The family of this 135-nucleotide RNA from Chlorocebus sabaeus is "Small nucleolar RNA SNORA48".
Rfam describes the family as follows. The snoRNA ACA 48 has been identified to guide pseudouridylation of the residue U3797 in the 28S rRNA subunit.
The family's RNA type in Rfam is H/ACA-box small nucleolar RNA.

RNA sequence: UGCCCCUGACCUGGCGAGAGAGGGGCCUGGCUGGUGGUGCCCAUCUCAUACCAGCUAGGGAUUUAGAAACCGCUUGCUCAUCCCAGCCUGGCUCCUGGUCUAUGCCCAUACCUGGUUCAUGCCUUGGACAGACCA
Dot-bracket structure: .(.(((((..((((...(((.((.(((........))).))...)))...)))).))))).)............((.(((.........(((...(((.(((.(......).))).))).))).))).)).....
A search with the family's covariance model found it, with a score of 116 bits. A reference for the family is Ofengand and Bakin (1997), "Mapping to nucleotide resolution of pseudouridine residues in large subunit ribosomal RNAs from representative eukaryotes, prokaryotes, archaebacteria, mitochondria and chloroplasts", J Mol Biol.